[Rfam]
Nucleotides: 060
Stems, first nucleotide, its partner, number of pairs: 004050005010024005035060006041053002
Number, partner (000 for none) and nucleotide at each position: 001000a002000a003000g004050c005049g006048u007047u008046g009000g010024c011023u012022c013021c014020c015000u016000c017000u018000u019000c020014g021013g022012g023011a024010g025000u026000g027000c028000a029000g030000u031000u032000c033000g034000a035060u036059u037058c038057a039056g040055g041053c042052c043000a044000a045000g046008c047007a048006a049005c050004g051000g052042g053041g054000a055040c056039c057038u058037g059036a060035g